[Rfam]
RNA sequence: UACAAGCUGCGUUGUACGUAACGAUAAUAAAGUUUUAACCUUUAAGCUGUAAUAGGGAGUUUUAAUUGAAACCGGACUGGCAAGCCUCUGUCUAUACGACAAGGAGGACAUACAUGAACGUUUCUGCGAACACCCACUUUGAGGAGUGGUGGUUUAAAACUUUCUUAUAUUAUUUACGGCAAUGGCGGCUCCUAC
Numbered sequence: 001u002a003c004a005a006g007c008u009g010c011g012u013u014g015u016a017c018g019u020a021a022c023g024a025u026a027a028u029a030a031a032g033u034u035u036u037a038a039c040c041u042u043u044a045a046g047c048u049g050u051a052a053u054a055g056g057g058a059g060u061u062u063u064a065a066u067u068g069a070a071a072c073c074g075g076a077c078u079g080g081c082a083a084g085c086c087u088c089u090g091u092c093u094a095u096a097c098g099a100c101a102a103g104g105a106g107g108a109c110a111u112a113c114a115u116g117a118a119c120g121u122u123u124c125u126g127c128g129a130a131c132a133c134c135c136a137c138u139u140u141g142a143g144g145a146g147u148g149g150u151g152g153u154u155u156a157a158a159a160c161u162u163u164c165u166u167a168u169a170u171u172a173u174u175u176a177c178g179g180c181a182a183u184g185g186c187g188g189c190u191c192c193u194a195c
Stems, first nucleotide, its partner, number of pairs: 002193001005190006012182004017178003031161004036156003039152002055135003059131004068124005079113001085107005

The family of this 195-nucleotide RNA sequence from Falsibacillus pallidus is "6S / SsrS RNA". About the family: E. coli 6S RNA was the first non coding RNA to be sequenced, but its function was unknown until recently. It consists of 184 nucleotides that fold into an extended hairpin structure with a large single-stranded internal bulge. The 6S RNA specifically associates with RNA polymerase holoenzyme containing the sigma70 specificity factor. This interaction represses expression from a sigma70-dependent promoter during stationary phase. 6S RNA homologs have recently been identified in most bacterial genomes. Lineage of the source: Bacteria > Bacillati > Bacillota > Caryophanales > Falsibacillus. Rfam classes the family as a non-coding RNA gene.